[Rfam]
RNA sequence: GUCGGCGUGGUCACCAUUCAACAAUCCUCCGUGCCGGUCGUCACUGAAUUGCCGGGCCGCACCAACGCCUUCCUCGUGGCGCAAGUGCGCGCGCGGGUCGACGGCAUCGUGCUGUCGCGCGACUUCACCGAAGGCAGCGAAGUGAAGGCCGGCCAGCGCCUGUACAAGAUCGA
Numbered sequence: 001g002u003c004g005g006c007g008u009g010g011u012c013a014c015c016a017u018u019c020a021a022c023a024a025u026c027c028u029c030c031g032u033g034c035c036g037g038u039c040g041u042c043a044c045u046g047a048a049u050u051g052c053c054g055g056g057c058c059g060c061a062c063c064a065a066c067g068c069c070u071u072c073c074u075c076g077u078g079g080c081g082c083a084a085g086u087g088c089g090c091g092c093g094c095g096g097g098u099c100g101a102c103g104g105c106a107u108c109g110u111g112c113u114g115u116c117g118c119g120c121g122a123c124u125u126c127a128c129c130g131a132a133g134g135c136a137g138c139g140a141a142g143u144g145a146a147g148g149c150c151g152g153c154c155a156g157c158g159c160c161u162g163u164a165c166a167a168g169a170u171c172g173a
Base pairs, nucleotide, nucleotide: 003054004053005052006051007050008047010045011043013041014040016038018037019036022033055150056149057148058147059143060142063139067135068134072133074131075130079092080091081090082089094121095120097118100115102114103113104112105111106110157172158171160168161167

The record is a 173-nucleotide sequence from Trinickia terrae, which matches "Burkholderia RNA 14" in Rfam. It is annotated as a small RNA. Gene Ontology term of the family: protein binding. Lineage of the source: Bacteria > Pseudomonadati > Pseudomonadota > Burkholderiaceae > Trinickia. Rfam's curators write: Co-purified with Hfq, expression confirmed by Northern blot. Putative functional homologue of PA-SraF. Overlaps coding sequence.